[Rfam]
RNA sequence: GGAUUUGUUCUCAACUUGUUUUCGGAGCUGCGUCCGAGUUCAUUUGUAACUCAUUUGCUCUGGGGAAAGUCCCCGAACCCCUGUCGGAGAGCGCUGGCACUAUGAAUUGUGCUGUCCUUCUCUCCGCUUGCCGUACAUUGAAGGGCAACCUGAGUUGGCAAGCAUCACAGGAGUAGGAAAUAGUUCAUUUAUACAGUUAUGCAAGUGUGAUAACUUACGGAAUGGGGCUUAUUGAGAAUGAAUC
Numbered sequence: 001g002g003a004u005u006u007g008u009u010c011u012c013a014a015c016u017u018g019u020u021u022u023c024g025g026a027g028c029u030g031c032g033u034c035c036g037a038g039u040u041c042a043u044u045u046g047u048a049a050c051u052c053a054u055u056u057g058c059u060c061u062g063g064g065g066a067a068a069g070u071c072c073c074c075g076a077a078c079c080c081c082u083g084u085c086g087g088a089g090a091g092c093g094c095u096g097g098c099a100c101u102a103u104g105a106a107u108u109g110u111g112c113u114g115u116c117c118u119u120c121u122c123u124c125c126g127c128u129u130g131c132c133g134u135a136c137a138u139u140g141a142a143g144g145g146c147a148a149c150c151u152g153a154g155u156u157g158g159c160a161a162g163c164a165u166c167a168c169a170g171g172a173g174u175a176g177g178a179a180a181u182a183g184u185u186c187a188u189u190u191a192u193a194c195a196g197u198u199a200u201g202c203a204a205g206u207g208u209g210a211u212a213a214c215u216u217a218c219g220g221a222a223u224g225g226g227g228c229u230u231a232u233u234g235a236g237a238a239u240g241a242a243u244c
Base pairs, nucleotide, nucleotide: 002244003243004242005241006240007239008238009237010236011235014206015205016204017203018202019201022063023062024061025060026059027058028057036052037051038050039049040048067230068229069228071227072226073225074224083095085093086092096113097112098111099110100109117177118176122173123172124171125170129164130163131162146157147156148155149154
RNase MRP: a 244-nucleotide RNA sequence from Argiope bruennichi. On this family, see Schmitt et al., FASEB J 1993: "Secondary structure of RNase MRP RNA as predicted by phylogenetic comparison". About the family: RNase MRP is an enzymatically active ribonucleoprotein with two distinct roles in eukaryotes. The source organism's lineage runs through Eukaryota, Arthropoda, Arachnida, Araneae and Argiope. Gene Ontology terms of the family: rRNA processing, ribonuclease MRP complex and ribonuclease MRP activity.